Description
This 144-nucleotide RNA from Clostridium sp. CAG:122 belongs to the Rfam family "Ribosomal protein L10 leader". By type it is a cis-regulatory leader. The family's consensus secondary structure was predicted with CMfinder. Rfam links the family to the GO term regulation of gene expression. The source organism's lineage runs through Bacteria, Bacillota, Clostridia, Clostridiaceae and Clostridium.

[Rfam]
RNA sequence: GAAUUGCAGGACACACUGCCGUAGACAGUAGGUGCCGGUGAACCGGUGUAAGUACAAACGCCUACCGAGGAAGAUGAAUUUCGAUAUGAAUUAUUUUCACCUCGUUCGGCUGGAUUUAUGCGACGAGGUUUUUAUUUUGCCUGA
Numbered sequence: 001g002a003a004u005u006g007c008a009g010g011a012c013a014c015a016c017u018g019c020c021g022u023a024g025a026c027a028g029u030a031g032g033u034g035c036c037g038g039u040g041a042a043c044c045g046g047u048g049u050a051a052g053u054a055c056a057a058a059c060g061c062c063u064a065c066c067g068a069g070g071a072a073g074a075u076g077a078a079u080u081u082c083g084a085u086a087u088g089a090a091u092u093a094u095u096u097u098c099a100c101c102u103c104g105u106u107c108g109g110c111u112g113g114a115u116u117u118a119u120g121c122g123a124c125g126a127g128g129u130u131u132u133u134a135u136u137u138u139g140c141c142u143g144a
Stems, first nucleotide, its partner, number of pairs: 028065006034047003099129008